[Rfam]
RNA sequence: ACCAUGCGAGCAUUGUUAUCAGGGCCUCUCCUUCCGAUGAGGAAAAGACCCGGUGUCCAGUUUUUGGAGAGCCCUGAAGGGUCACCUUCGGGGCG
Numbered sequence: 001a002c003c004a005u006g007c008g009a010g011c012a013u014u015g016u017u018a019u020c021a022g023g024g025c026c027u028c029u030c031c032u033u034c035c036g037a038u039g040a041g042g043a044a045a046a047g048a049c050c051c052g053g054u055g056u057c058c059a060g061u062u063u064u065u066g067g068a069g070a071g072c073c074c075u076g077a078a079g080g081g082u083c084a085c086c087u088u089c090g091g092g093g094c095g
Base pairs, nucleotide, nucleotide: 022051023050024049026047027046071094072093073092074091075090076089077088078087079086

Notes: Shown here is a 95-nucleotide sequence from Steinernema hermaphroditum, a member of the family "SmY spliceosomal RNA". The source organism's lineage runs through Eukaryota, Eumetazoa, Ecdysozoa, Tylenchina and Steinernema. Pairs were carried over by alignment from the consensus structure, which is taken from published work.